epsC RNA: a 112-nucleotide RNA sequence from Peribacillus psychrosaccharolyticus. The source organism's lineage runs through Bacteria, Bacilli, Caryophanales, Bacillaceae and Peribacillus. The family's RNA type in Rfam is cis-regulatory element. It scores 101 bits against the family's covariance model. The base pairs follow the family's consensus structure, which is taken from published work.

RNA sequence: CGGUGAUGCCUCCUAGCCGGUAUUAACGGAGGUACUCGAUCAUACUGUGGGUUGACUCAACCUUAGACGCGUGUCGUCAAGAGUGUGGUGCUGAGGAAGGGUUAGAUGCCCU
Numbered sequence: 001c002g003g004u005g006a007u008g009c010c011u012c013c014u015a016g017c018c019g020g021u022a023u024u025a026a027c028g029g030a031g032g033u034a035c036u037c038g039a040u041c042a043u044a045c046u047g048u049g050g051g052u053u054g055a056c057u058c059a060a061c062c063u064u065a066g067a068c069g070c071g072u073g074u075c076g077u078c079a080a081g082a083g084u085g086u087g088g089u090g091c092u093g094a095g096g097a098a099g100g101g102u103u104a105g106a107u108g109c110c111c112u
Stems, first nucleotide, its partner, number of pairs: 001019004007034007035095004039089008049063006066078004098112005